[Rfam]
RNA sequence: GCACAGAUGACCACCGGUAGUCCGGUGUGGGGGCUUCAAACCCGUAGCUAAUGAGAAUCAGAGUGGUUCAAUUCCACCUUCUGGGC
Numbered sequence: 001g002c003a004c005a006g007a008u009g010a011c012c013a014c015c016g017g018u019a020g021u022c023c024g025g026u027g028u029g030g031g032g033g034c035u036u037c038a039a040a041c042c043c044g045u046a047g048c049u050a051a052u053g054a055g056a057a058u059c060a061g062a063g064u065g066g067u068u069c070a071a072u073u074c075c076a077c078c079u080u081c082u083g084g085g086c
Base pairs, nucleotide, nucleotide: 001086002085004083005082006081007080009078012027013026014025015024016023017022028046029045031043032042033041048061049060051058052057063077064076065075066074